Description: This 75-nucleotide RNA from Papaver nudicaule belongs to the Rfam family "Small nucleolar RNA SNORD18". Its family is annotated with RNA processing and nucleolus in the Gene Ontology. Lineage of the source: Eukaryota > Mesangiospermae > Papaveraceae > Papaveroideae > Papaver. The family has 16 seed sequences and 2,622 matches in Rfam 15.1. Pairs were carried over by alignment from the consensus structure, which was predicted with PFOLD. It scores 43 bits against the family's covariance model. The family is grouped with related families in Rfam's "SNORD18 clan".
RNA sequence: GUGAAAUGAUGAACACUUUUUUGGUCCGUGUUUCUGAAUGAACAUUGACGACAAACCUUAACCACUUCUGAUCAU
Numbered sequence: 001g002u003g004a005a006a007u008g009a010u011g012a013a014c015a016c017u018u019u020u021u022u023g024g025u026c027c028g029u030g031u032u033u034c035u036g037a038a039u040g041a042a043c044a045u046u047g048a049c050g051a052c053a054a055a056c057c058u059u060a061a062c063c064a065c066u067u068c069u070g071a072u073c074a075u
Base pairs, nucleotide, nucleotide: 001075002074003073004072